[Rfam]
RNA sequence: UGUUGUGUGUGAUGAGAAAUGUAAAUUAUCACACAGUUAUCCCUGUCUGAUACAUUUUUGUGUGCUUACAUGUGAUCUGACACAAAC
Numbered sequence: 001u002g003u004u005g006u007g008u009g010u011g012a013u014g015a016g017a018a019a020u021g022u023a024a025a026u027u028a029u030c031a032c033a034c035a036g037u038u039a040u041c042c043c044u045g046u047c048u049g050a051u052a053c054a055u056u057u058u059u060g061u062g063u064g065c066u067u068a069c070a071u072g073u074g075a076u077c078u079g080a081c082a083c084a085a086a087c
Base pairs, nucleotide, nucleotide: 003085004084005083006082007081

Small nucleolar RNA R38: an 87-nucleotide sequence from Hevea brasiliensis.
Rfam classes the family as a C/D-box small nucleolar RNA.
The family has 19 seed sequences and 2,295 matches in Rfam 15.1.
On this family, see Bachellerie et al., Trends Biochem Sci 1995: "Antisense snoRNAs: a family of nucleolar RNAs with long complementarities to rRNA".
Rfam describes the family as follows. snoR38 is a C/D box small nucleolar RNA conserved across yeast, human, Arabidopsis and rice. It is encoded in the intron of elongation factor-1 gamma in both pombe and cerevisiae. snoR38 guides the methylation of 2'-O-ribose sites in 28S rRNA.